The record is a 60-nucleotide RNA sequence from Escherichia coli, which matches "rdlD antitoxin" in Rfam. Rfam links the family to the GO terms mRNA binding and negative regulation of translation. It is annotated as an antitoxin RNA. It is one of the family's seed sequences.
RNA sequence: GUCUGGUUUCAAGAUUAGCCCUGUUGUCAGGUUUUACCUCUCAACGUGCGGGGGUUUUCU
Dot-bracket structure: ................((((((((((..(((.....)))..))))).....)))))....

The family has 52 seed sequences and 86 matches in Rfam 15.1. For this family Rfam cites "Molecular characterization of long direct repeat (LDR) sequences expressing a stable mRNA encoding for a 35-amino-acid cell-killing peptide and a cis-encoded small antisense RNA in Escherichia coli" (Kawano et al., Mol Microbiol, 2002).